About this RNA: A member of the RNA family "Burkholderia sRNA 1" from Burkholderia dolosa, 206 nucleotides long. For this family Rfam cites "Differential expression of small RNAs from Burkholderia thailandensis in response to varying environmental and stress conditions" (Stubben et al., BMC Genomics, 2014). Lineage of the source: Bacteria > Pseudomonadati > Burkholderia > Burkholderia cepacia complex > Burkholderia dolosa. It scores 144 bits against the family's covariance model. By type it is a small RNA.

RNA sequence: AAAAGUUCUACGGGGUAGCAAAAACAAAGCGCGGGGUGAGCGUAGCCGGCACGUGGUCAACGUGCCGGCCGCGGAGUGUCAGCAUGCACGGCGGGGCCAGCCAUCGUCCGACAACAAUUGCAUGCGGACCGACUUGCGGAUAAGCGACGUUCCGUCGUCCGACCGGGGAAAGGCAGUAAUCGGGCGGCGGCGGACGUUUUUUAAUC
Numbered sequence: 001a002a003a004a005g006u007u008c009u010a011c012g013g014g015g016u017a018g019c020a021a022a023a024a025c026a027a028a029g030c031g032c033g034g035g036g037u038g039a040g041c042g043u044a045g046c047c048g049g050c051a052c053g054u055g056g057u058c059a060a061c062g063u064g065c066c067g068g069c070c071g072c073g074g075a076g077u078g079u080c081a082g083c084a085u086g087c088a089c090g091g092c093g094g095g096g097c098c099a100g101c102c103a104u105c106g107u108c109c110g111a112c113a114a115c116a117a118u119u120g121c122a123u124g125c126g127g128a129c130c131g132a133c134u135u136g137c138g139g140a141u142a143a144g145c146g147a148c149g150u151u152c153c154g155u156c157g158u159c160c161g162a163c164c165g166g167g168g169a170a171a172g173g174c175a176g177u178a179a180u181c182g183g184g185c186g187g188c189g190g191c192g193g194a195c196g197u198u199u200u201u202u203a204a205u206c
Stems, first nucleotide, its partner, number of pairs: 001201006008036002011033002014030001041073003045069010078129003082125005094107001096105001135149002139145001151194007159187003163183003